Shown here is a 130-nucleotide RNA from Diceros bicornis, a member of the family "Small nucleolar RNA SNORA31". It scores 133 bits against the family's covariance model. It is annotated as an H/ACA-box small nucleolar RNA.
RNA sequence: CUGCACCCACUGAUAGGCCUUGAACAGUUUGUUGUUGUUCAUUUGGUUUGCACUGGGAUGCAAAAGAAGGAAAUCCCUGCGCUUUCUGCCUGUCUUCGUGGCAGCUCAGAUUGAAUAGGGGAAUACAUCU
Numbered sequence: 001c002u003g004c005a006c007c008c009a010c011u012g013a014u015a016g017g018c019c020u021u022g023a024a025c026a027g028u029u030u031g032u033u034g035u036u037g038u039u040c041a042u043u044u045g046g047u048u049u050g051c052a053c054u055g056g057g058a059u060g061c062a063a064a065a066g067a068a069g070g071a072a073a074u075c076c077c078u079g080c081g082c083u084u085u086c087u088g089c090c091u092g093u094c095u096u097c098g099u100g101g102c103a104g105c106u107c108a109g110a111u112u113g114a115a116u117a118g119g120g121g122a123a124u125a126c127a128u129c130u
Base pairs, nucleotide, nucleotide: 002062003061004060005059007057008056011052012051014050015049016048017047018046019045022040023039024038025037026036027035028034074122075121076120077119078118082113085110086109087108088107090104091103092102093101094100